[Rfam]
This 181-nucleotide RNA from Gnomoniopsis smithogilvyi belongs to the Rfam family "U2 spliceosomal RNA". Lineage of the source: Eukaryota > saccharomyceta > leotiomyceta > Diaporthales > Gnomoniopsis. The family's consensus secondary structure is taken from published work. It is annotated as a spliceosomal small nuclear RNA.

RNA sequence: AGCUUUUCUGAGUCUUAAUGGCUUUGAUUAGAUGUAGUAUCUGUUCUUGACAGUGUGACAGCUGUUAUUCCCUACGUCACCAAAUUUUUAUCCUUUGGCUGCUGGUCAUCUGAAGCUCGCUUCAUGGUCGGUAGGCACAGUGCCCCUGGUAUUACACUGCCUCCAGGUGGCGCGACCUUCU
Numbered sequence: 001a002g003c004u005u006u007u008c009u010g011a012g013u014c015u016u017a018a019u020g021g022c023u024u025u026g027a028u029u030a031g032a033u034g035u036a037g038u039a040u041c042u043g044u045u046c047u048u049g050a051c052a053g054u055g056u057g058a059c060a061g062c063u064g065u066u067a068u069u070c071c072c073u074a075c076g077u078c079a080c081c082a083a084a085u086u087u088u089u090a091u092c093c094u095u096u097g098g099c100u101g102c103u104g105g106u107c108a109u110c111u112g113a114a115g116c117u118c119g120c121u122u123c124a125u126g127g128u129c130g131g132u133a134g135g136c137a138c139a140g141u142g143c144c145c146c147u148g149g150u151a152u153u154a155c156a157c158u159g160c161c162u163c164c165a166g167g168u169g170g171c172g173c174g175a176c177c178u179u180c181u
Stems, first nucleotide, its partner, number of pairs: 007027002011023004048067006097136001099134006112123004140173005145167005